The family of this 105-nucleotide RNA from Clostridium novyi is "SAM riboswitch aptamer (S box leader)". The family's consensus secondary structure is taken from published work. The match comes from Rfam's covariance-model search (89 bits).
RNA sequence: AUCUUAUCAAGAGAGGUGGAGGGAAUGGCCCUAUGAAGCCCGGCAACCAGUAUAUAAAUAAAUACUAAGGUGCUAAUUCCUGCAGUAUAAUCUGCAAGAUAAGAA
Numbered sequence: 001a002u003c004u005u006a007u008c009a010a011g012a013g014a015g016g017u018g019g020a021g022g023g024a025a026u027g028g029c030c031c032u033a034u035g036a037a038g039c040c041c042g043g044c045a046a047c048c049a050g051u052a053u054a055u056a057a058a059u060a061a062a063u064a065c066u067a068a069g070g071u072g073c074u075a076a077u078u079c080c081u082g083c084a085g086u087a088u089a090a091u092c093u094g095c096a097a098g099a100u101a102a103g104a105a
Stems, first nucleotide, its partner, number of pairs: 002104007013041001015040003021031003027080002042074004047070002049066004078097001083094003
Annotation: The organism belongs to Clostridium novyi, within Bacteria.